[Rfam]
RNA: c-di-GMP-I riboswitch aptamer
RNA sequence: AGAAUAUAGCGGCAAACUUAUCGAAAGAUAAGGACGCAAAGCCAUGGGUCUAAUAACGUUAGUUAAUGAUUGCCAGGUUGCAGGU
Numbered sequence: 001a002g003a004a005u006a007u008a009g010c011g012g013c014a015a016a017c018u019u020a021u022c023g024a025a026a027g028a029u030a031a032g033g034a035c036g037c038a039a040a041g042c043c044a045u046g047g048g049u050c051u052a053a054u055a056a057c058g059u060u061a062g063u064u065a066a067u068g069a070u071u072g073c074c075a076g077g078u079u080g081c082a083g084g085u
Stems, first nucleotide, its partner, number of pairs: 012037002017032006040079004045075003048070003055064003